Shown here is a 102-nucleotide RNA sequence from Pseudomonas sp. SSM44, a member of the family "Guanidine-I riboswitch aptamer".
From the family's description: This family represents a conserved RNA structure found upstream of the ykkC and yxkD genes in Bacillus subtilis and related genes in other bacteria. The function of this family is unclear although it has been suggested that it may function to switch on efflux pumps and detoxification systems in response to harmful environmental molecules.
Pairs were carried over by alignment from the consensus structure.
Taxonomically the source falls in Pseudomonas (Bacteria, Pseudomonadati, Pseudomonadales, Pseudomonadaceae).
RNA sequence: CAAAUAGAGCGCUAGGGUUCCGGCUGAGCUGUUCAGUGACUGGUCCAAGAGCACUCGACCUUUCAGACAAAGGUUACACGGCGGGACAAAAGCCCGGGAGAC
Numbered sequence: 001c002a003a004a005u006a007g008a009g010c011g012c013u014a015g016g017g018u019u020c021c022g023g024c025u026g027a028g029c030u031g032u033u034c035a036g037u038g039a040c041u042g043g044u045c046c047a048a049g050a051g052c053a054c055u056c057g058a059c060c061u062u063u064c065a066g067a068c069a070a071a072g073g074u075u076a077c078a079c080g081g082c083g084g085g086a087c088a089a090a091a092g093c094c095c096g097g098g099a100g101a102c
Base pairs, nucleotide, nucleotide: 007056008055009054011052012051015046016045020043021042022040023037024036025035026034027033028032057075058074059073060072061071062070063069077097079100083095084094085093
The match comes from Rfam's covariance-model search (89 bits).